[Rfam]
RNA sequence: GUGCUCGGGUUUCUCUUCAUAACGCACAAAUCUUUCGCCUUUUACUAAAGAUUUCCGUGGAGAGGGACAUGCCUGAGUUUGUGCUAUUUUUGGAGACCCCCGUUCUUCGGGACGGGGU
Numbered sequence: 001g002u003g004c005u006c007g008g009g010u011u012u013c014u015c016u017u018c019a020u021a022a023c024g025c026a027c028a029a030a031u032c033u034u035u036c037g038c039c040u041u042u043u044a045c046u047a048a049a050g051a052u053u054u055c056c057g058u059g060g061a062g063a064g065g066g067a068c069a070u071g072c073c074u075g076a077g078u079u080u081g082u083g084c085u086a087u088u089u090u091u092g093g094a095g096a097c098c099c100c101c102g103u104u105c106u107u108c109g110g111g112a113c114g115g116g117g118u
Base pairs, nucleotide, nucleotide: 003078004077005076006075009068010067011066012065013064014063015062016061017060018059019058028054029053030052031051032050033049034048035047094118098117099116100115101114102113103112

Shown here is a 118-nucleotide sequence from Albula glossodonta, a member of the family "U5 spliceosomal RNA".
Rfam describes the family as follows. U5 RNA is a component of both types of known spliceosome. The precise function of this molecule is unknown, though it is known that the 5' loop is required for splice site selection and p220 binding, and that both the 3' stem-loop and the Sm site are important for Sm protein binding and cap methylation.
The base pairs follow the family's consensus structure, which is taken from published work.